RNA sequence: CUUAUGCCUCCCGAGAGGACCUGAGGGCCCCGCCAACCAGCCUUGACCGGCAACGGUGGUAAGACGAUGCGGCCCGCAGGGGCAGCAAUAGGUCUUCUC
Numbered sequence: 001c002u003u004a005u006g007c008c009u010c011c012c013g014a015g016a017g018g019a020c021c022u023g024a025g026g027g028c029c030c031c032g033c034c035a036a037c038c039a040g041c042c043u044u045g046a047c048c049g050g051c052a053a054c055g056g057u058g059g060u061a062a063g064a065c066g067a068u069g070c071g072g073c074c075c076g077c078a079g080g081g082g083c084a085g086c087a088a089u090a091g092g093u094c095u096u097c098u099c
Base pairs, nucleotide, nucleotide: 006070007069009067010066015031017030018029020027021026032060033059034058037056038055040051041050042049045094046093047092048091072083073082074081075080
RNA: SAM-I/IV (S-adenosyl methionine) riboswitch aptamer